[Rfam]
RNA sequence: GCCGAUCCUUGACUGGAACUUGGAUAUCGUUCGUAUACAGCAAAAUAGUCCUGUACCCGUACUUCCAACUUCCAAAUCAAGGAUCGUC
Numbered sequence: 001g002c003c004g005a006u007c008c009u010u011g012a013c014u015g016g017a018a019c020u021u022g023g024a025u026a027u028c029g030u031u032c033g034u035a036u037a038c039a040g041c042a043a044a045a046u047a048g049u050c051c052u053g054u055a056c057c058c059g060u061a062c063u064u065c066c067a068a069c070u071u072c073c074a075a076a077u078c079a080a081g082g083a084u085c086g087u088c
Stems, first nucleotide, its partner, number of pairs: 003086010014075001016073001018071001020068005031059001033056005
Dot-bracket structure: ..((((((((((.(.(.(.(((((......(.(((((..............)))))..)....)))))..).).).))))))))))..
RNA: mir-54 microRNA precursor family